[Rfam]
RNA sequence: GUCCCACCUGAGUUGGAAGUGGGAUCCUGACACGUGAGGACUUUUCGCUGGUGCCAGAUCUAACUCUUCCAGCUCACGUGAGGU
Number, nucleotide and partner (000 for none) at each position: 001g084002u083003c082004c000005c080006a079007c078008c000009u076010g075011a074012g073013u072014u071015g070016g069017a068018a000019g066020u000021g064022g061023g060024a059025u058026c057027c000028u000029g054030a000031c053032a052033c051034g000035u000036g000037a000038g000039g000040a000041c000042u000043u000044u000045u000046c000047g000048c000049u000050g000051g033052u032053g031054c029055c000056a000057g026058a025059u024060c023061u022062a000063a000064c021065u000066c019067u000068u017069c016070c015071a014072g013073c012074u011075c010076a009077c000078g007079u006080g005081a000082g003083g002084u001
Notes
The family of this 84-nucleotide RNA from Rhipicephalus sanguineus is "mir-750 microRNA precursor family". The family's consensus secondary structure was predicted with RNAalifold. The family has 5 seed sequences and 33 matches in Rfam 15.1. The match comes from Rfam's covariance-model search (72 bits). Gene Ontology terms of the family: miRNA-mediated post-transcriptional gene silencing and RISC complex. The organism belongs to Rhipicephalus, within Eukaryota.